[Rfam]
RNA sequence: GCACGUUGCGGUGACUGGCGACGCGACGCGGGCAACCGCGGGGGAGCCGCAAGAAUCCACGGGCCGCGCGCCUGGGCCGAGAAC
Numbered sequence: 001g002c003a004c005g006u007u008g009c010g011g012u013g014a015c016u017g018g019c020g021a022c023g024c025g026a027c028g029c030g031g032g033c034a035a036c037c038g039c040g041g042g043g044g045a046g047c048c049g050c051a052a053g054a055a056u057c058c059a060c061g062g063g064c065c066g067c068g069c070g071c072c073u074g075g076g077c078c079g080a081g082a083a084c
Base pairs, nucleotide, nucleotide: 006052007051008050009049010048011047012046015043016042017072018071019070020069028039029038030037031036062078063077064076065075
RNA: ZMP/ZTP riboswitch aptamer (pfl RNA motif)
Organism: Deinococcus peraridilitoris